The family of this 79-nucleotide RNA from Caenorhabditis auriculariae is "SmY spliceosomal RNA".
By type it is a spliceosomal small nuclear RNA.
The literature on the family includes a 2007 paper in RNA by MacMorris et al., "A novel family of C. elegans snRNPs contains proteins associated with trans-splicing".
Pairs were carried over by alignment from the consensus structure, which is taken from published work.
It scores 65 bits against the family's covariance model.
RNA sequence: UGAAAAUCUAAAGAACUCUCAGGGCCUUACAUAAGACCCCAAGAUAAAUUUUGGAUACCCUUACUUUUAGGUAAGGGUA
Number, nucleotide and partner (000 for none) at each position: 001u000002g000003a000004a000005a000006a000007u000008c000009u000010a000011a000012a000013g000014a000015a000016c000017u000018c000019u000020c000021a000022g039023g038024g037025c000026c035027u034028u033029a000030c000031a000032u000033a028034a027035g026036a000037c024038c023039c022040c000041a000042a000043g000044a000045u000046a000047a000048a000049u000050u000051u000052u000053g000054g000055a000056u000057a078058c077059c076060c075061u074062u073063a072064c071065u070066u000067u000068u000069a000070g065071g064072u063073a062074a061075g060076g059077g058078u057079a000